[Rfam]
The record is a 356-nucleotide sequence from Lophotis ruficrista, which matches "Nuclear RNase P" in Rfam.
RNA sequence: UCCGGGGGAAGCUCACCGCCGAGGCCACGCACGGGGUGCCCGUCACCCGCGGCCCCGCCUCGGGGAAGGUCUGAGGGAAGGGCCGGUUCCGCGGCUCCAGCAGAGCCCCGCCCGCGAGGGGCGGGUGAGCCACCAGCAAGGAGGGCGGCGCCGCGGCAAUCACAGGGCCGGUGUCGGGCAGGAGAAGCCGAGCAGGUUUCGGGGGAGCGGGGGUGACCCUGCUUCCCGCAACGGGACCCCGGCGGAUGCUCAUGGCCCCGCGGUGCUUUGAGACAGACUCACGGCCGGCAUCGCUGAGUCCAAUGGGUGAGGUGGGGUACGGCCCUACAACCCAAUUCAGACUACUCUCCCCCGGA
Numbered sequence: 001u002c003c004g005g006g007g008g009a010a011g012c013u014c015a016c017c018g019c020c021g022a023g024g025c026c027a028c029g030c031a032c033g034g035g036g037u038g039c040c041c042g043u044c045a046c047c048c049g050c051g052g053c054c055c056c057g058c059c060u061c062g063g064g065g066a067a068g069g070u071c072u073g074a075g076g077g078a079a080g081g082g083c084c085g086g087u088u089c090c091g092c093g094g095c096u097c098c099a100g101c102a103g104a105g106c107c108c109c110g111c112c113c114g115c116g117a118g119g120g121g122c123g124g125g126u127g128a129g130c131c132a133c134c135a136g137c138a139a140g141g142a143g144g145g146c147g148g149c150g151c152c153g154c155g156g157c158a159a160u161c162a163c164a165g166g167g168c169c170g171g172u173g174u175c176g177g178g179c180a181g182g183a184g185a186a187g188c189c190g191a192g193c194a195g196g197u198u199u200c201g202g203g204g205g206a207g208c209g210g211g212g213g214u215g216a217c218c219c220u221g222c223u224u225c226c227c228g229c230a231a232c233g234g235g236a237c238c239c240c241g242g243c244g245g246a247u248g249c250u251c252a253u254g255g256c257c258c259c260g261c262g263g264u265g266c267u268u269u270g271a272g273a274c275a276g277a278c279u280c281a282c283g284g285c286c287g288g289c290a291u292c293g294c295u296g297a298g299u300c301c302a303a304u305g306g307g308u309g310a311g312g313u314g315g316g317g318u319a320c321g322g323c324c325c326u327a328c329a330a331c332c333c334a335a336u337u338c339a340g341a342c343u344a345c346u347c348u349c350c351c352c353c354g355g356a
Base pairs, nucleotide, nucleotide: 001356002355003354004353007350008349009348012311013310014309015308016307017306020062021061022060023059024058034048035047036046037045038044071340072339073338074337075336081286082285083284084283093107094106095105096104097103108124109123110122111121112120113119125282126281127280128279129278131276145266146265147264312328313327314326315325316324317323

The family's RNA type in Rfam is ribozyme.
From the family's description: Ribonuclease P (RNase P) is a ubiquitous endoribonuclease, found in archaea, bacteria and eukarya as well as chloroplasts and mitochondria. Its best characterised activity is the generation of mature 5'-ends of tRNAs by cleaving the 5'-leader elements of precursor-tRNAs. Cellular RNase Ps are ribonucleoproteins. RNA from bacterial RNase Ps retains its catalytic activity in the absence of the protein subunit, i.e. it is a ribozyme. Isolated eukaryotic and archaeal RNase P RNA has not been shown to retain its catalytic function, but is still essential for the catalytic activity of the holoenzyme. Although the archaeal and eukaryotic holoenzyme s have a much greater protein content than the bacterial ones, the RNA cores from all the three lineages are homologous -- helices corresponding to P1, P2, P3, P4, and P10/11 are common to all cellular RNase P RNAs. Yet, there is considerable sequence variation, particularly among the eukaryotic RNAs.
The family's consensus secondary structure is taken from published work.
The match comes from Rfam's covariance-model search (148 bits).